[Rfam]
RNA: nrdJ RNA
Organism: Streptomyces sp. HG99
RNA sequence: ACCCGCUGCGGGGGGCCGUAUGGGCGGCGCGCGCAGCAUCAGACACACACCGUGCCACGGGAAGAACGAGGCACUUCAGGGCGUU
Numbered sequence: 001a002c003c004c005g006c007u008g009c010g011g012g013g014g015g016c017c018g019u020a021u022g023g024g025c026g027g028c029g030c031g032c033g034c035a036g037c038a039u040c041a042g043a044c045a046c047a048c049a050c051c052g053u054g055c056c057a058c059g060g061g062a063a064g065a066a067c068g069a070g071g072c073a074c075u076u077c078a079g080g081g082c083g084u085u
Stems, first nucleotide, its partner, number of pairs: 005037006012030001014028001016027004052074005058068002